[Rfam]
RNA: ZMP/ZTP riboswitch aptamer (pfl RNA motif)
RNA sequence: AUGGACGCACACGACUGGCGCGGGUGGGGUGACCACCGGGGAGUGUGUGAGAAGGCAUCGUCCGCCUGGGUGCCCCUC
Numbered sequence: 001a002u003g004g005a006c007g008c009a010c011a012c013g014a015c016u017g018g019c020g021c022g023g024g025u026g027g028g029g030u031g032a033c034c035a036c037c038g039g040g041g042a043g044u045g046u047g048u049g050a051g052a053a054g055g056c057a058u059c060g061u062c063c064g065c066c067u068g069g070g071u072g073c074c075c076c077u078c
Stems, first nucleotide, its partner, number of pairs: 006049007015040002017066004024036004055073005